[Rfam]
RNA sequence: CCAGUCGAAACAUGUCGAAGCAUGACCUCUGUCGAGGUAGUCCGUGGGGUAGAGCGACCGAUUGGGAGAUCCGCCUCCGAGAGGAGUCGGCCUCCCUGUCGAACUCCAAACCUACGGACGCCAUUGACGCAGGGAAUCCGGUGUGCGGGGUAAGCCUGUGCACCAGGAGGGAGACAACCCAGAGCUGGGUUAAGGUCCCCAAGUGUGGACUAAGUGCGAUCGAAGGUGGUCCCGAGCCCUAGACAGCCGGGAGGUGAGCUUAGAAGCAGCUACCCUCCAAGAAAAGCGUAACAGCUUACCGGCCGAGGUUCGGGGCGCCGAAAAUGAUCGGGGCUCAAGUCCACCACCGAGACCUGGCGGCACGCAUCACAGCGUGAUCCAGUAGGUCGGCAUUCUGUUCGGGUGGAAGUACGGGUGAGAACUCGUAUGGACCGAAUAGGAACGAAAAU
Dot-bracket structure: ((.(((....(((((....)))))..((((((...(((.((((((((....(((.....(((.(((((....(.((((....)))).)...))))).)))...)).)....)))))))))))......)))))).....(((((((((.......)))))))))....(((......)))...(((((((...(((......(.((((((..............(((.((((((((((.......(((((.(((..(((.........)))..)))(...)(...((......)).).)))))...)))))))))))))...................))))))))))...)))))))(((((((......)))))..))....))).))(.((((((((((......((((((((....))))))))...))))))))))..).....
Numbered sequence: 001c002c003a004g005u006c007g008a009a010a011c012a013u014g015u016c017g018a019a020g021c022a023u024g025a026c027c028u029c030u031g032u033c034g035a036g037g038u039a040g041u042c043c044g045u046g047g048g049g050u051a052g053a054g055c056g057a058c059c060g061a062u063u064g065g066g067a068g069a070u071c072c073g074c075c076u077c078c079g080a081g082a083g084g085a086g087u088c089g090g091c092c093u094c095c096c097u098g099u100c101g102a103a104c105u106c107c108a109a110a111c112c113u114a115c116g117g118a119c120g121c122c123a124u125u126g127a128c129g130c131a132g133g134g135a136a137u138c139c140g141g142u143g144u145g146c147g148g149g150g151u152a153a154g155c156c157u158g159u160g161c162a163c164c165a166g167g168a169g170g171g172a173g174a175c176a177a178c179c180c181a182g183a184g185c186u187g188g189g190u191u192a193a194g195g196u197c198c199c200c201a202a203g204u205g206u207g208g209a210c211u212a213a214g215u216g217c218g219a220u221c222g223a224a225g226g227u228g229g230u231c232c233c234g235a236g237c238c239c240u241a242g243a244c245a246g247c248c249g250g251g252a253g254g255u256g257a258g259c260u261u262a263g264a265a266g267c268a269g270c271u272a273c274c275c276u277c278c279a280a281g282a283a284a285a286g287c288g289u290a291a292c293a294g295c296u297u298a299c300c301g302g303c304c305g306a307g308g309u310u311c312g313g314g315g316c317g318c319c320g321a322a323a324a325u326g327a328u329c330g331g332g333g334c335u336c337a338a339g340u341c342c343a344c345c346a347c348c349g350a351g352a353c354c355u356g357g358c359g360g361c362a363c364g365c366a367u368c369a370c371a372g373c374g375u376g377a378u379c380c381a382g383u384a385g386g387u388c389g390g391c392a393u394u395c396u397g398u399u400c401g402g403g404u405g406g407a408a409g410u411a412c413g414g415g416u417g418a419g420a421a422c423u424c425g426u427a428u429g430g431a432c433c434g435a436a437u438a439g440g441a442a443c444g445a446a447a448a449u
Stems, first nucleotide, its partner, number of pairs: 001390002004387003011024005027134006036122003040119008052107001053105002060100003064096005073088001075086004140164009169180003184358007194348003203345001205344006225319003229316010246303005252276003257271003277281001282297001286295002359380002361376005391444001393441010409428008
A member of the RNA family "Archaeal large subunit ribosomal RNA" from a halophilic archaeon, 449 nucleotides of a longer RNA. It scores 2819 bits against the family's covariance model.